[Rfam]
RNA: mir-393 microRNA precursor family
RNA sequence: GGUGGAGAGCUCCAAAGGGAUCGCAUUGAUCUAAUGUUGAUAUGGAUUUUUGAAUCAAGUGUCAUGGUAUGGUCAUUUGUUGAUUCAGUUUGCUCAUUGGAUCAUGUGAUCCCUUCGAAAUUUUCCAU
Numbered sequence: 001g002g003u004g005g006a007g008a009g010c011u012c013c014a015a016a017g018g019g020a021u022c023g024c025a026u027u028g029a030u031c032u033a034a035u036g037u038u039g040a041u042a043u044g045g046a047u048u049u050u051u052g053a054a055u056c057a058a059g060u061g062u063c064a065u066g067g068u069a070u071g072g073u074c075a076u077u078u079g080u081u082g083a084u085u086c087a088g089u090u091u092g093c094u095c096a097u098u099g100g101a102u103c104a105u106g107u108g109a110u111c112c113c114u115u116c117g118a119a120a121u122u123u124u125c126c127a128u
Base pairs, nucleotide, nucleotide: 002128003127004126005125006124008122009121011119013117015115016114017113018112019111020110021109023107024106025105026104028103029102030101031100032099036095